The record is a 96-nucleotide RNA from Pseudonaja textilis, which matches "Small nucleolar RNA SNORD21" in Rfam.
It is annotated as a C/D-box small nucleolar RNA.
Rfam links the family to the GO terms nucleolus and RNA processing.
For this family Rfam cites "U21, a novel small nucleolar RNA with a 13 nt. complementarity to 28S rRNA, is encoded in an intron of ribosomal protein L5 gene in chicken and mammals" (Qu et al., Nucleic Acids Res, 1994).
The family has 5 seed sequences and 566 matches in Rfam 15.1.
The family's consensus secondary structure was predicted with PFOLD.
RNA sequence: ACUGUGUGAUGAUAUCCCUCUGACUGAACACUCUGUAGUUGGUCCUUGGCGUGUGUAUGAUUGAUCUUGGUGUUUCAAGACGGGACUGAUGGUGGC
Numbered sequence: 001a002c003u004g005u006g007u008g009a010u011g012a013u014a015u016c017c018c019u020c021u022g023a024c025u026g027a028a029c030a031c032u033c034u035g036u037a038g039u040u041g042g043u044c045c046u047u048g049g050c051g052u053g054u055g056u057a058u059g060a061u062u063g064a065u066c067u068u069g070g071u072g073u074u075u076c077a078a079g080a081c082g083g084g085a086c087u088g089a090u091g092g093u094g095g096c
Base pairs, nucleotide, nucleotide: 001093002092003091004090